Background:
Shown here is a 44-nucleotide sequence from Porphyromonas gingivalis, a member of the family "S4-Bacteroidia ribosomal protein leader". It is annotated as a cis-regulatory leader. Its Rfam clan is "Ribosomal Protein S4 Leader clan".
RNA sequence: GAUUGCCUAUAAACUAUCAAUCUCUCACAUAGCAAUCGCGGCUG
Numbered sequence: 001g002a003u004u005g006c007c008u009a010u011a012a013a014c015u016a017u018c019a020a021u022c023u024c025u026c027a028c029a030u031a032g033c034a035a036u037c038g039c040g041g042c043u044g
Base pairs, nucleotide, nucleotide: 001037002036003035004034005033006032